RNA: EcpR1
Organism: Blastochloris viridis
RNA sequence: UUGCCCUACGGAAUGCUCAGGUCCGCCGCAUCUCCUGGGUCCGUGGGGUUUGGCCGGCCGGGUCGUGCGCGAGAGGCCUCCUUUCGCACGUUACCCGGUCGGCCUUCCU
Numbered sequence: 001u002u003g004c005c006c007u008a009c010g011g012a013a014u015g016c017u018c019a020g021g022u023c024c025g026c027c028g029c030a031u032c033u034c035c036u037g038g039g040u041c042c043g044u045g046g047g048g049u050u051u052g053g054c055c056g057g058c059c060g061g062g063u064c065g066u067g068c069g070c071g072a073g074a075g076g077c078c079u080c081c082u083u084u085c086g087c088a089c090g091u092u093a094c095c096c097g098g099u100c101g102g103c104c105u106u107c108c109u
Base pairs, nucleotide, nucleotide: 003049004048005047006046007045008044009043010042016039017038018037019036020035021034052104053103054102055101056100057099058098059097060096061095062094